[Rfam]
RNA sequence: AAAUUUGUUGCAGUUAAAAAGCUCGUAGUUGGAUUCCUGCUCUGGACGUAGGGGGCCGCUAACGCGGUCCACCAUGCGCACCCGGCAUUCUGCCCGCCGCUCCCGAGAUCGUUGUCAAAGGCGGCUCGGGGUGGAUGGCGGAGAUCGCUUUGCAAAAAUUAGAGUGCUCUAGGCGGGCCACUAAGCUCGAAUAGUAAUGCACGGUACGAUGAAACAUGACUUUGGCUCUUAUUCGGUUGGGGCACGGAGACCGAGGUAAUGAUUAAUAGGAGCAGACGGGGGCAUUCGUAUUCCGACGCUAGAGGUGAAAUUCUUGGACCGUCGGAAGACGCACCACUGCGAAAGCAUUUGCCAAGAAUGUUUCCGUUGACCAAGAACGAAAGUGUGGGGCUCAAAGAAGAUUAGAUACCUUUGUAGUCUUGUACCCUAAACGAUACCCUCCAGCGAUCCGGCUGCGUACGAACGUGACGCGCCGGGCAGCUCUUCCGGGGAAACCAGAGUUCCGGCUCCGGGGGAAGUAUGGUUGCAAAGCUGAAACUUAAAGGAAU
Numbered sequence: 001a002a003a004u005u006u007g008u009u010g011c012a013g014u015u016a017a018a019a020a021g022c023u024c025g026u027a028g029u030u031g032g033a034u035u036c037c038u039g040c041u042c043u044g045g046a047c048g049u050a051g052g053g054g055g056c057c058g059c060u061a062a063c064g065c066g067g068u069c070c071a072c073c074a075u076g077c078g079c080a081c082c083c084g085g086c087a088u089u090c091u092g093c094c095c096g097c098c099g100c101u102c103c104c105g106a107g108a109u110c111g112u113u114g115u116c117a118a119a120g121g122c123g124g125c126u127c128g129g130g131g132u133g134g135a136u137g138g139c140g141g142a143g144a145u146c147g148c149u150u151u152g153c154a155a156a157a158a159u160u161a162g163a164g165u166g167c168u169c170u171a172g173g174c175g176g177g178c179c180a181c182u183a184a185g186c187u188c189g190a191a192u193a194g195u196a197a198u199g200c201a202c203g204g205u206a207c208g209a210u211g212a213a214a215c216a217u218g219a220c221u222u223u224g225g226c227u228c229u230u231a232u233u234c235g236g237u238u239g240g241g242g243c244a245c246g247g248a249g250a251c252c253g254a255g256g257u258a259a260u261g262a263u264u265a266a267u268a269g270g271a272g273c274a275g276a277c278g279g280g281g282g283c284a285u286u287c288g289u290a291u292u293c294c295g296a297c298g299c300u301a302g303a304g305g306u307g308a309a310a311u312u313c314u315u316g317g318a319c320c321g322u323c324g325g326a327a328g329a330c331g332c333a334c335c336a337c338u339g340c341g342a343a344a345g346c347a348u349u350u351g352c353c354a355a356g357a358a359u360g361u362u363u364c365c366g367u368u369g370a371c372c373a374a375g376a377a378c379g380a381a382a383g384u385g386u387g388g389g390g391c392u393c394a395a396a397g398a399a400g401a402u403u404a405g406a407u408a409c410c411u412u413u414g415u416a417g418u419c420u421u422g423u424a425c426c427c428u429a430a431a432c433g434a435u436a437c438c439c440u441c442c443a444g445c446g447a448u449c450c451g452g453c454u455g456c457g458u459a460c461g462a463a464c465g466u467g468a469c470g471c472g473c474c475g476g477g478c479a480g481c482u483c484u485u486c487c488g489g490g491g492a493a494a495c496c497a498g499a500g501u502u503c504c505g506g507c508u509c510c511g512g513g514g515g516a517a518g519u520a521u522g523g524u525u526g527c528a529a530a531g532c533u534g535a536a537a538c539u540u541a542a543a544g545g546a547a548u
Base pairs, nucleotide, nucleotide: 011511013509019508021378023376024375028371029370030369269365270364271363272362273360274359277356281353282352283351284350287331288330291327292326293325294324295323296322297321298320302313303312304311339346340345383425384424385423386422387420388419393417397413398412399411400410437506438505439500440499441498443482444481445480448477449476450475451474452473453472457469458468489496490495513540514539515538522533523532524531525530
A member of the RNA family "Eukaryotic small subunit ribosomal RNA" from Trichonephila clavipes, 548 nucleotides of a longer RNA.